A member of the RNA family "ASdes TB sRNA" from Mycobacterium simulans, 68 nucleotides long. Rfam classes the family as a small RNA. The organism belongs to Mycobacterium, within Bacteria.

[Rfam]
RNA sequence: AGCUCUACGGGGUCGACGGAACGAGUCACCACCAGGUAGUCGCGCAACGCGAUGCCGUGCCGGUUUUC
Numbered sequence: 001a002g003c004u005c006u007a008c009g010g011g012g013u014c015g016a017c018g019g020a021a022c023g024a025g026u027c028a029c030c031a032c033c034a035g036g037u038a039g040u041c042g043c044g045c046a047a048c049g050c051g052a053u054g055c056c057g058u059g060c061c062g063g064u065u066u067u068c
Stems, first nucleotide, its partner, number of pairs: 004063002008059002011030003015027003035056004040052005